[Rfam]
RNA sequence: GUAAGCAACCCCCAGAUUGAAUCUGGGGGCUUCAGCAAAUGUUGAAGCCUAGCUUACCCGACUAAGUACCUUGAGUACUACGUUAUUGGCAAGUCGUUAAAGAACCUACCCUGGAAUGCGUAGCCAGUUCCAGGCUCUAGAAGUUGAAGGUUAAACAAGCAUAAAGGUUUAAAGCUAGUGCCUUUGACAUAGUACCGACCAAUAACAUUGUCCAGGCUAACAUUAC
Numbered sequence: 001g002u003a004a005g006c007a008a009c010c011c012c013c014a015g016a017u018u019g020a021a022u023c024u025g026g027g028g029g030c031u032u033c034a035g036c037a038a039a040u041g042u043u044g045a046a047g048c049c050u051a052g053c054u055u056a057c058c059c060g061a062c063u064a065a066g067u068a069c070c071u072u073g074a075g076u077a078c079u080a081c082g083u084u085a086u087u088g089g090c091a092a093g094u095c096g097u098u099a100a101a102g103a104a105c106c107u108a109c110c111c112u113g114g115a116a117u118g119c120g121u122a123g124c125c126a127g128u129u130c131c132a133g134g135c136u137c138u139a140g141a142a143g144u145u146g147a148a149g150g151u152u153a154a155a156c157a158a159g160c161a162u163a164a165a166g167g168u169u170u171a172a173a174g175c176u177a178g179u180g181c182c183u184u185u186g187a188c189a190u191a192g193u194a195c196c197g198a199c200c201a202a203u204a205a206c207a208u209u210g211u212c213c214a215g216g217c218u219a220a221c222a223u224u225a226c
Stems, first nucleotide, its partner, number of pairs: 001057006008050001010029002012026002015023002030047007060212003064208001065079005082206006096199001106140002110134008121219005143188009155179002158176003162172001164170001